[Rfam]
RNA: DUF3800-I RNA
RNA sequence: UACCUUUACAGAUAGAAGUAUACUGUUUACAUUUACAAAUCGAUGUUCUAUUAAGCGUAAUGUAAGUACGCCGAUGUAAAUGGAUAGCUGUCCAAUGGACAGCUAUUUUUUUUAUUU
Numbered sequence: 001u002a003c004c005u006u007u008a009c010a011g012a013u014a015g016a017a018g019u020a021u022a023c024u025g026u027u028u029a030c031a032u033u034u035a036c037a038a039a040u041c042g043a044u045g046u047u048c049u050a051u052u053a054a055g056c057g058u059a060a061u062g063u064a065a066g067u068a069c070g071c072c073g074a075u076g077u078a079a080a081u082g083g084a085u086a087g088c089u090g091u092c093c094a095a096u097g098g099a100c101a102g103c104u105a106u107u108u109u110u111u112u113u114a115u116u117u
Stems, first nucleotide, its partner, number of pairs: 008026004012021003030082006039075004043051003055071005083107010